Rfam assigns this 152-nucleotide sequence from Pseudomonas taeanensis to the family "radC RNA". The family's RNA type in Rfam is cis-regulatory element.

[Rfam]
RNA sequence: UAUUUUCAUCCGUGAGCUGCUGACGUCGUCAGCGACCAUGCCCAAGCAGUCAUGAUCUGUGAGACUGCGACACGGUUAACCGUGUUGAUCAAACCUAAGAUCGCCGAGCUUCCGGUAGCGCGAUCGGUCAAUCGACAGCGAUUGAUGGAAGC
Numbered sequence: 001u002a003u004u005u006u007c008a009u010c011c012g013u014g015a016g017c018u019g020c021u022g023a024c025g026u027c028g029u030c031a032g033c034g035a036c037c038a039u040g041c042c043c044a045a046g047c048a049g050u051c052a053u054g055a056u057c058u059g060u061g062a063g064a065c066u067g068c069g070a071c072a073c074g075g076u077u078a079a080c081c082g083u084g085u086u087g088a089u090c091a092a093a094c095c096u097a098a099g100a101u102c103g104c105c106g107a108g109c110u111u112c113c114g115g116u117a118g119c120g121c122g123a124u125c126g127g128u129c130a131a132u133c134g135a136c137a138g139c140g141a142u143u144g145a146u147g148g149a150a151g152c
Stems, first nucleotide, its partner, number of pairs: 011040004019033006046068006054090004069086007120152002127146008
It scores 109 bits against the family's covariance model.